[Rfam]
RNA: Manganese Mn2+ riboswitch aptamer (yybP-ykoY)
RNA sequence: ACACUACGCGCCGUUUUCGGGGAGUAGCCAGCUUCGCCGGGCCACCGGUGGAGCGUGUCCGUCAACAUACUUGGCCCACAGGCCAUGGCGGGCACCGGGUUCGACCGCAGCAAGACCGGAGACCGCGAUGGCGCCAGGACCGGCCGCUUUCGUGGUCUUCGUGCGCCUGCCGGUCGGAAUC
Numbered sequence: 001a002c003a004c005u006a007c008g009c010g011c012c013g014u015u016u017u018c019g020g021g022g023a024g025u026a027g028c029c030a031g032c033u034u035c036g037c038c039g040g041g042c043c044a045c046c047g048g049u050g051g052a053g054c055g056u057g058u059c060c061g062u063c064a065a066c067a068u069a070c071u072u073g074g075c076c077c078a079c080a081g082g083c084c085a086u087g088g089c090g091g092g093c094a095c096c097g098g099g100u101u102c103g104a105c106c107g108c109a110g111c112a113a114g115a116c117c118g119g120a121g122a123c124c125g126c127g128a129u130g131g132c133g134c135c136a137g138g139a140c141c142g143g144c145c146g147c148u149u150u151c152g153u154g155g156u157c158u159u160c161g162u163g164c165g166c167c168u169g170c171c172g173g174u175c176g177g178a179a180u181c
Stems, first nucleotide, its partner, number of pairs: 031054008055095010072085005098181002100178004